The family of this 135-nucleotide sequence from Pseudomonas protegens is "Pseudomonas sRNA P18".
RNA sequence: GGCGGGGUGCUGCUCAGCCCGUUCCUGAUUUAUGUGGUGCUGGCGCUGGUGCUGACCGGUGCCCUGCGGAUGCUGGUGCGGGUAACCGGGCUGGGCCGCUGGAUCUGGCACGAAGCACUGUUCGAUUGUGCCCUG
Numbered sequence: 001g002g003c004g005g006g007g008u009g010c011u012g013c014u015c016a017g018c019c020c021g022u023u024c025c026u027g028a029u030u031u032a033u034g035u036g037g038u039g040c041u042g043g044c045g046c047u048g049g050u051g052c053u054g055a056c057c058g059g060u061g062c063c064c065u066g067c068g069g070a071u072g073c074u075g076g077u078g079c080g081g082g083u084a085a086c087c088g089g090g091c092u093g094g095g096c097c098g099c100u101g102g103a104u105c106u107g108g109c110a111c112g113a114a115g116c117a118c119u120g121u122u123c124g125a126u127u128g129u130g131c132c133c134u135g
Stems, first nucleotide, its partner, number of pairs: 002067010012052002014049005019043003023039001068133002075097003079093003098131002102127004108121003

Lineage of the source: Bacteria > Pseudomonadati > Pseudomonadota > Pseudomonas > Pseudomonas protegens. The base pairs follow the family's consensus structure, which was predicted with WAR.